[Rfam]
RNA: SAM riboswitch aptamer (S box leader)
RNA sequence: CUCUUAUCGCGAGAGGUGGAGGGACUGGCCCGAUGAAACCCAGCAACCACUAAGUCAUAUGUUGACCUAGAAGGUGCUAAUUCCUGCAAAGCAUGAGCUUUGGUAGAUGAGAG
Dot-bracket structure: ((((((((....(.(((...(((.[.[[)))......))))((((.((.(((...............)))..))))))...(]].]((((((....))))))..)))))))))